Record summary:
This 76-nucleotide RNA from Listeria monocytogenes belongs to the Rfam family "L17 ribosomal protein downstream element". The organism belongs to Listeria monocytogenes, within Bacteria. Rfam's curators put it in the seed alignment. The family's consensus secondary structure is taken from published work. Rfam classes the family as a cis-regulatory element.
RNA sequence: GGAGUGUCAUGAUAUGGGGACUUCGUGUUUCCUUGUCUAGCUCUGUGUUUCCUAGUCUACUUAAUCGUAGGCUAGG
Numbered sequence: 001g002g003a004g005u006g007u008c009a010u011g012a013u014a015u016g017g018g019g020a021c022u023u024c025g026u027g028u029u030u031c032c033u034u035g036u037c038u039a040g041c042u043c044u045g046u047g048u049u050u051c052c053u054a055g056u057c058u059a060c061u062u063a064a065u066c067g068u069a070g071g072c073u074a075g076g
Stems, first nucleotide, its partner, number of pairs: 002043004011037003017032004051076009